[Rfam]
RNA sequence: GGUAUUGUUUUGCCCCAUGAUAAGCCCCGGAAAGUUUAUUAUGUUGCCAAACACAAC
Numbered sequence: 001g002g003u004a005u006u007g008u009u010u011u012g013c014c015c016c017a018u019g020a021u022a023a024g025c026c027c028c029g030g031a032a033a034g035u036u037u038a039u040u041a042u043g044u045u046g047c048c049a050a051a052c053a054c055a056a057c
Stems, first nucleotide, its partner, number of pairs: 006053005012047001016043009
RNA: Ribosomal protein L13 leader